[Rfam]
RNA sequence: UACUUAUCCAGAGCGGUGGAGGGACCUGGCCCUUUGAAACCCGGCAACCUGCUUGAAAGCAAGGUGCUAAAUCCAGCAAAAUGGAAUCCAUUUUGGGAGAUAAGGG
Numbered sequence: 001u002a003c004u005u006a007u008c009c010a011g012a013g014c015g016g017u018g019g020a021g022g023g024a025c026c027u028g029g030c031c032c033u034u035u036g037a038a039a040c041c042c043g044g045c046a047a048c049c050u051g052c053u054u055g056a057a058a059g060c061a062a063g064g065u066g067c068u069a070a071a072u073c074c075a076g077c078a079a080a081a082u083g084g085a086a087u088c089c090a091u092u093u094u095g096g097g098a099g100a101u102a103a104g105g106g
Base pairs, nucleotide, nucleotide: 001106003104004103005102006101007100008099013042015041016040017039021032022031023030026076027075028074029073043068044067045066046065048064049063050061051060052059053058072098077095078094079093080092081091082090